A member of the RNA family "Selenocysteine insertion sequence 4" from Clostridium fallax, 38 nucleotides long. On this family, see Graentzdoerffer et al., Arch Microbiol 2001: "Molecular analysis of the grd operon coding for genes of the glycine reductase and of the thioredoxin system from Clostridium sticklandii". The organism belongs to Clostridium, within Bacteria.
RNA sequence: GGAACUUGUACACGUUGCGGUGCAACACUUGUUAAAGA
Numbered sequence: 001g002g003a004a005c006u007u008g009u010a011c012a013c014g015u016u017g018c019g020g021u022g023c024a025a026c027a028c029u030u031g032u033u034a035a036a037g038a
Stems, first nucleotide, its partner, number of pairs: 005031001014026005
Gene Ontology term of the family: selenocysteine incorporation. Rfam classes the family as a cis-regulatory element. Rfam 15.1 lists 436 matches to the family in 281 species. The family's consensus secondary structure was predicted with PFOLD.